[Rfam]
RNA sequence: GUACUCAAUUCCUUUUUCGUCAGCUCCACAUGCCAAUCGUCGAUUCAAGUACGAAUGGCAAGUGCAGUUUGCGAGAAGGAAGACUCC
Numbered sequence: 001g002u003a004c005u006c007a008a009u010u011c012c013u014u015u016u017u018c019g020u021c022a023g024c025u026c027c028a029c030a031u032g033c034c035a036a037u038c039g040u041c042g043a044u045u046c047a048a049g050u051a052c053g054a055a056u057g058g059c060a061a062g063u064g065c066a067g068u069u070u071g072c073g074a075g076a077a078g079g080a081a082g083a084c085u086c087c
Base pairs, nucleotide, nucleotide: 001087003085005083006082009079010078015076016075018073019072020071022069023068024067025066032059033058034057035056037054038053039052040051
The record is an 87-nucleotide RNA sequence from Pristionchus pacificus, which matches "mir-2238 microRNA precursor family" in Rfam. Rfam 15.1 lists 22 matches to the family in 3 species. On this family, see de Wit et al., Genome Res 2009: "Repertoire and evolution of miRNA genes in four divergent nematode species". It scores 57 bits against the family's covariance model. The organism belongs to Pristionchus, within Eukaryota.